[Rfam]
RNA: c-di-AMP riboswitch aptamer (ydaO/yuaA leader)
Organism: Paenibacillus antarcticus
RNA sequence: AUUAACCAAUUGCCGAAUUUUGUUUUUUUGAAAACGGGGGAACCAUUCCGGGUGAAUUAUUCUUGAAAGCAAGAGAAUAUAGGGAACCUUUUACCGAAUCCUCAGCUAACUCCGUAGGCAUCGAAAGGAAGACGA
Dot-bracket structure: ..........((((...(((((......)))))((((((..........(((.....(((((((........)))))))..((.(......).))...)))........)))))).))))...............